[Rfam]
RNA: SAM-I/IV (S-adenosyl methionine) riboswitch aptamer
Organism: Profundicola chukchiensis
RNA sequence: GCAAAGUAUUUCGAACCUCAAUAGAGGUACCAACCGAGUGUAGUCACCACGGUGGUAAAAUAAUACGGACAGUCGUCAAAAUAAACGCAAACU
Numbered sequence: 001g002c003a004a005a006g007u008a009u010u011u012c013g014a015a016c017c018u019c020a021a022u023a024g025a026g027g028u029a030c031c032a033a034c035c036g037a038g039u040g041u042a043g044u045c046a047c048c049a050c051g052g053u054g055g056u057a058a059a060a061u062a063a064u065a066c067g068g069a070c071a072g073u074c075g076u077c078a079a080a081a082u083a084a085a086c087g088c089a090a091a092c093u
Stems, first nucleotide, its partner, number of pairs: 006066005015028005029056003034052003038047002041089001068077003
Dot-bracket structure: .....(((((....(((((....)))))(((..(((.((.[....))..))).))).....))))).(((....)))...........]....